[Rfam]
RNA sequence: UGAUACUAUGAACAUUUUUCUUGUAUAUGAUCAGUAAUAUGGCCUGAUCGUUUCUACCUAGUAACCGUAAAAGACUAGACUACAGGAAAGUUUGAUUAAAUU
Numbered sequence: 001u002g003a004u005a006c007u008a009u010g011a012a013c014a015u016u017u018u019u020c021u022u023g024u025a026u027a028u029g030a031u032c033a034g035u036a037a038u039a040u041g042g043c044c045u046g047a048u049c050g051u052u053u054c055u056a057c058c059u060a061g062u063a064a065c066c067g068u069a070a071a072a073g074a075c076u077a078g079a080c081u082a083c084a085g086g087a088a089a090g091u092u093u094g095a096u097u098a099a100a101u102u
Base pairs, nucleotide, nucleotide: 018088019087020086021085022084023083024082025081029049030048031047032046033045034044058078059077060076061075062074
RNA: Purine riboswitch aptamer
Organism: Psychrobacillus glaciei